A member of the RNA family "Molybdenum/Tungsten riboswitch aptamer (Moco RNA motif)" from Geobacter pickeringii, 121 nucleotides long. Lineage of the source: Bacteria > Thermodesulfobacteriota > Desulfuromonadia > Geobacteraceae > Geobacter.
RNA sequence: AUUAAUUUCAUUCUCCGAGCCGUCACACCUACCGGGCACCAGCCCCACGGUCUGCGGCCAACGGGUGCCGCUGGAAACGGCGGGGCCUCCCUUCUGGAAAGGAGAACGCUUGAUACGCCUU
Numbered sequence: 001a002u003u004a005a006u007u008u009c010a011u012u013c014u015c016c017g018a019g020c021c022g023u024c025a026c027a028c029c030u031a032c033c034g035g036g037c038a039c040c041a042g043c044c045c046c047a048c049g050g051u052c053u054g055c056g057g058c059c060a061a062c063g064g065g066u067g068c069c070g071c072u073g074g075a076a077a078c079g080g081c082g083g084g085g086c087c088u089c090c091c092u093u094c095u096g097g098a099a100a101g102g103a104g105a106a107c108g109c110u111u112g113a114u115a116c117g118c119c120u121u
Base pairs, nucleotide, nucleotide: 003115004114006112011106012105013104014103015102016101019058020057021056022055023054025053027051028050029049034045035044036043063088064087065086066085068083069082070081071080072079073078089097090096

Its family is annotated with tungstate binding, molybdenum ion binding and regulation of gene expression in the Gene Ontology. A reference for the family is Regulski et al. (2008), "in molybdenum cofactor and tungsten cofactor metabolism", Mol Microbiol.